Rfam assigns this 126-nucleotide sequence from Cricetulus griseus to the family "Small Cajal body specific RNA 4". Its family is annotated with nucleolus, Cajal body and RNA processing in the Gene Ontology. The family is grouped with related families in Rfam's "SCARNA4 clan". The source organism's lineage runs through Eukaryota, Eumetazoa, Gnathostomata, Cricetidae and Cricetulus. The literature on the family includes a 2002 paper in EMBO J by Darzacq et al., "Cajal body-specific small nuclear RNAs: a novel class of 2'-O-methylation and pseudouridylation guide RNAs".
[Rfam]
RNA sequence: GCUAGAGGACCCAAGAAGGCUGAGUCUGAUGAAGCAAGACUUUGCUGAUACAUUCCUAGACAGAGUGGUAGAGAGAGCAGCCCUUAUAGGAGAAAGCCACAGGGCUGACUGUACUACCCAACGUUU
Number, nucleotide and partner (000 for none) at each position: 001g000002c059003u058004a000005g000006a057007g056008g055009a054010c000011c000012c000013a000014a000015g000016a000017a000018g046019g045020c044021u000022g042023a041024g040025u039026c038027u037028g000029a000030u000031g000032a000033a000034g000035c000036a000037a027038g026039a025040c024041u023042u022043u000044g020045c019046u018047g000048a000049u000050a000051c000052a000053u000054u009055c008056c007057u006058a003059g002060a000061c000062a000063g000064a000065g000066u000067g118068g117069u116070a000071g000072a000073g000074a000075g000076a110077g109078c107079a106080g105081c104082c103083c102084u101085u000086a000087u000088a000089g098090g097091a000092g000093a000094a000095a000096g000097c090098c089099a000100c000101a084102g083103g082104g081105c080106u079107g078108a000109c077110u076111g000112u000113a000114c000115u000116a069117c068118c067119c000120a000121a000122c000123g000124u000125u000126u000